[Rfam]
RNA sequence: AGGCAACCUCCUUGCCCUAAUUGUAUGCCAUGAGAGGUGUUAAACUGCUCGUAAAUUGAAUGCUUUUGCUCUUCAGACUUGCUGAGAUUAUCUCUGAAGCUGGUCUAGUAAGCUCAAGUACAUU
Dot-bracket structure: .((((.(((.(.((.(..........).)).).).)))))).....................(((..(((....(((((.(((..((...)).....))).)))))....)))..)))......
Numbered sequence: 001a002g003g004c005a006a007c008c009u010c011c012u013u014g015c016c017c018u019a020a021u022u023g024u025a026u027g028c029c030a031u032g033a034g035a036g037g038u039g040u041u042a043a044a045c046u047g048c049u050c051g052u053a054a055a056u057u058g059a060a061u062g063c064u065u066u067u068g069c070u071c072u073u074c075a076g077a078c079u080u081g082c083u084g085a086g087a088u089u090a091u092c093u094c095u096g097a098a099g100c101u102g103g104u105c106u107a108g109u110a111a112g113c114u115c116a117a118g119u120a121c122a123u124u
Stems, first nucleotide, its partner, number of pairs: 002041004007037002009034001011032001013030002016027001063118003068113003075106005081100003086092002
A member of the RNA family "Small nucleolar RNA snoR77" from Lupinus angustifolius, 124 nucleotides long. The source organism's lineage runs through Eukaryota, Embryophyta, Spermatophyta, Fabaceae and Lupinus. Pairs were carried over by alignment from the consensus structure, which was predicted with WAR. By type it is an H/ACA-box small nucleolar RNA. Rfam links the family to the GO terms RNA processing and nucleolus. On this family, see Marker et al., Curr Biol 2002: "Experimental RNomics: identification of 140 candidates for small non-messenger RNAs in the plant Arabidopsis thaliana". A search with the family's covariance model found it, with a score of 106 bits.